A member of the RNA family "Small nucleolar RNA SNORA79" from Gasterosteus aculeatus, 138 nucleotides long. Lineage of the source: Eukaryota > Metazoa > Osteoglossocephalai > Clupeocephala > Gasterosteus. Rfam links the family to the GO terms nucleolus and RNA processing. For this family Rfam cites "A computational screen for mammalian pseudouridylation guide H/ACA RNAs" (Schattner et al., RNA, 2006).
RNA sequence: CGACGUCGGUUCCUCCUCCUGACUGCAGUGGAUCAGGAGGAUUUUACGAGGUCGUAGAGUAACGAGUCUGUUUCACCCAGAGAGCUUCAGGCCACGGCUUCGCUCACGGCUUCCUGGUUUUGCGAGACUCUAUAAAAU
Numbered sequence: 001c002g003a004c005g006u007c008g009g010u011u012c013c014u015c016c017u018c019c020u021g022a023c024u025g026c027a028g029u030g031g032a033u034c035a036g037g038a039g040g041a042u043u044u045u046a047c048g049a050g051g052u053c054g055u056a057g058a059g060u061a062a063c064g065a066g067u068c069u070g071u072u073u074c075a076c077c078c079a080g081a082g083a084g085c086u087u088c089a090g091g092c093c094a095c096g097g098c099u100u101c102g103c104u105c106a107c108g109g110c111u112u113c114c115u116g117g118u119u120u121u122g123c124g125a126g127a128c129u130c131u132a133u134a135a136a137a138u
Base pairs, nucleotide, nucleotide: 001054002053003052004051006049007048008047014041015040016039017038018037020035021034022033064130065129066128067127068126069125077117078116079115080114082112083111084110085109086108090104091103092102094100
Dot-bracket structure: ((((.(((.....(((((.(((..........))).))))).....))).)))).........((((((.......((((.(((((...(((.(.....).)))...))))).)))).......))))))........
The family's consensus secondary structure was predicted with RNAalifold. ACA65 (SNORA79) is a member of the H/ACA class of snoRNAs that guide the sites of modification of uridines to pseudouridines. This snoRNA was identified by computational screening and its expression in mouse experimentally verified by Northern blot and primer extension analysis.